[Rfam]
RNA sequence: CGCCCGUCAUGGCAACAUGGCGGAGGGCCGGACAGGAGUCAGCAGAGGCCAUAUUAGGCGAGAGGAAACAAGCCCGGCGAAAGGA
Numbered sequence: 001c002g003c004c005c006g007u008c009a010u011g012g013c014a015a016c017a018u019g020g021c022g023g024a025g026g027g028c029c030g031g032a033c034a035g036g037a038g039u040c041a042g043c044a045g046a047g048g049c050c051a052u053a054u055u056a057g058g059c060g061a062g063a064g065g066a067a068a069c070a071a072g073c074c075c076g077g078c079g080a081a082a083g084g085a
Stems, first nucleotide, its partner, number of pairs: 001026001004023008039046002049084002057078001059076002062073001
RNA: Group II catalytic intron D1-D4-1